Rfam assigns this 77-nucleotide sequence from Caenorhabditis briggsae to the family "mir-784 microRNA precursor family".
[Rfam]
RNA sequence: CUACCAAGUGGCACAAUACCUGUAUGUAGAUAGUGAAGUAAUAUUGUUCUACAUACACCUAUUGAGCCACCUGGUGG
Numbered sequence: 001c002u003a004c005c006a007a008g009u010g011g012c013a014c015a016a017u018a019c020c021u022g023u024a025u026g027u028a029g030a031u032a033g034u035g036a037a038g039u040a041a042u043a044u045u046g047u048u049c050u051a052c053a054u055a056c057a058c059c060u061a062u063u064g065a066g067c068c069a070c071c072u073g074g075u076g077g
Stems, first nucleotide, its partner, number of pairs: 002076005008070005014064005021057010036045002
Dot-bracket structure: .(((((.(((((.(((((..((((((((((.....((......))..))))))))))..))))).))))).))))).